[Rfam]
RNA sequence: AACAUCUUAAAUAAUGAAAGCCCUACCUCUCUCUCAUCCUUACGGUUCCGAGACCGUGCCAGUGAUAAGAAAAUUCCUUCUUAUCGU
Numbered sequence: 001a002a003c004a005u006c007u008u009a010a011a012u013a014a015u016g017a018a019a020g021c022c023c024u025a026c027c028u029c030u031c032u033c034u035c036a037u038c039c040u041u042a043c044g045g046u047u048c049c050g051a052g053a054c055c056g057u058g059c060c061a062g063u064g065a066u067a068a069g070a071a072a073a074u075u076c077c078u079u080c081u082u083a084u085c086g087u
Base pairs, nucleotide, nucleotide: 034067039062040061041058042057043056044055045054046053047052
RNA: BsrC